Shown here is a 130-nucleotide RNA sequence from Ameiurus melas, a member of the family "Small nucleolar RNA SNORA49".
[Rfam]
Nucleotides: 130
Base pairs, nucleotide, nucleotide: 004059005058006057007056008055011052017047018046019045020044021042023039024038025037026036070124071123072122074120075119082109084108085107087105089104090103091102092101
Number, partner (000 for none) and nucleotide at each position: 001000c002000u003000g004059c005058c006057c007056c008055u009000u010000c011052c012000u013000u014000a015000c016000u017047c018046c019045a020044g021042c022000c023039u024038g025037u026036c027000u028000g029000a030000c031000u032000c033000u034000g035000u036026g037025a038024u039023g040000u041000g042021g043000u044020c045019u046018g047017g048000c049000a050000u051000u052011g053000a054000c055008g056007g057006g058005g059004g060000a061000a062000a063000c064000a065000c066000u067000a068000a069000c070124c071123g072122c073000u074120c075119c076000a077000c078000c079000g080000c081000a082109c083000a084108c085107u086000u087105c088000c089104a090103c091102u092101g093000g094000g095000g096000u097000u098000a099000g100000u101092c102091a103090g104089u105087g106000c107085a108084g109082g110000a111000c112000c113000a114000g115000u116000g117000g118000u119075g120074g121000a122072g123071c124070g125000a126000a127000c128000a129000u130000g
It scores 38 bits against the family's covariance model.
Rfam classes the family as an H/ACA-box small nucleolar RNA.
Rfam describes the family as follows. The snoRNA ACA49 has no identified RNA target. NB genomic sequence 1-nt different from published.
The base pairs follow the family's consensus structure, which was predicted with RNAalifold.
Rfam 15.1 lists 722 matches to the family in 550 species.